[Rfam]
RNA sequence: UGUUCUGGCGCUGCGUGGAAGACUAGUGAUUUUGUUGUUCUGAUGUAUAAAGGUGACAACAAAUCAUAGCCUCCAUACAGCGCAGAUCC
Numbered sequence: 001u002g003u004u005c006u007g008g009c010g011c012u013g014c015g016u017g018g019a020a021g022a023c024u025a026g027u028g029a030u031u032u033u034g035u036u037g038u039u040c041u042g043a044u045g046u047a048u049a050a051a052g053g054u055g056a057c058a059a060c061a062a063a064u065c066a067u068a069g070c071c072u073c074c075a076u077a078c079a080g081c082g083c084a085g086a087u088c089c
Base pairs, nucleotide, nucleotide: 002088004086005085006084008083009082011080012079013078015076016075017074018073020072021071023069024068026067027066028065029064030063031062032061034060035059036058037057038056039055
Dot-bracket structure: .(.(((.((.(((.((((.((.((.(((((((.((((((...............))))))))))))))).)))))).))).))))).).
Shown here is an 89-nucleotide RNA from Nothoprocta perdicaria, a member of the family "mir-7 microRNA precursor family". Pairs were carried over by alignment from the consensus structure, which was predicted with PFOLD.